RNA: mir-1302 microRNA precursor family
Organism: Balaenoptera musculus
RNA sequence: UUUUUAGUAUAAGUAUGUCCCAUGUGAUGUUUGGGACAUAUUUAUACUGCCA
Numbered sequence: 001u002u003u004u005u006a007g008u009a010u011a012a013g014u015a016u017g018u019c020c021c022a023u024g025u026g027a028u029g030u031u032u033g034g035g036a037c038a039u040a041u042u043u044a045u046a047c048u049g050c051c052a
Base pairs, nucleotide, nucleotide: 006048007047008046009045010044011043012042014040015039016038018036019035020034021033022031